A member of the RNA family "mraW RNA" from Corynebacterium incognitum, 103 nucleotides long.

[Rfam]
RNA sequence: CUAGAGAGUGUGUGUACGGACUUCGUUCGAGACCGCGCGCUGGUGUACUUCCCCGACAUCAGAAGCGGUUUCGGACGGAGCCCUAUACGCACUCUUGGCGUCA
Numbered sequence: 001c002u003a004g005a006g007a008g009u010g011u012g013u014g015u016a017c018g019g020a021c022u023u024c025g026u027u028c029g030a031g032a033c034c035g036c037g038c039g040c041u042g043g044u045g046u047a048c049u050u051c052c053c054c055g056a057c058a059u060c061a062g063a064a065g066c067g068g069u070u071u072c073g074g075a076c077g078g079a080g081c082c083c084u085a086u087a088c089g090c091a092c093u094c095u096u097g098g099c100g101u102c103a
Base pairs, nucleotide, nucleotide: 010090011089012088013087014086015085016084018083019082021080022079023078024077025076026075027074028073029072030071031070032069033068034067035066036065040062041061042060043059044058045057046056
Rfam classes the family as a cis-regulatory element.
NCBI's taxonomy places the organism under Bacteria, Bacillati, Actinomycetota, Corynebacteriaceae, Corynebacterium.
The match comes from Rfam's covariance-model search (53 bits).
The base pairs follow the family's consensus structure, which is taken from published work.